[Rfam]
The family of this 92-nucleotide sequence from Labrus bergylta is "mir-146 microRNA precursor family". Taxonomically the source falls in Labrus (Eukaryota, Vertebrata, Acanthomorphata, Labriformes). On this family, see Lagos-Quintana et al., Curr Biol 2002: "Identification of tissue-specific microRNAs from mouse". The family has 33 seed sequences and 1,617 matches in Rfam 15.1.
RNA sequence: UUAAGUGCUAUGCUAUGAGAACUGAAUUCCAUAGAUGGUGGCGUCUUCAGGUGUCGUCUAUGGGCUCAGUUCUUUUGGUAUGGUACCACUGC
Numbered sequence: 001u002u003a004a005g006u007g008c009u010a011u012g013c014u015a016u017g018a019g020a021a022c023u024g025a026a027u028u029c030c031a032u033a034g035a036u037g038g039u040g041g042c043g044u045c046u047u048c049a050g051g052u053g054u055c056g057u058c059u060a061u062g063g064g065c066u067c068a069g070u071u072c073u074u075u076u077g078g079u080a081u082g083g084u085a086c087c088a089c090u091g092c
Base pairs, nucleotide, nucleotide: 008083009082011080012079013078018073019072020071021070022069023068024067025066033059034058035057036056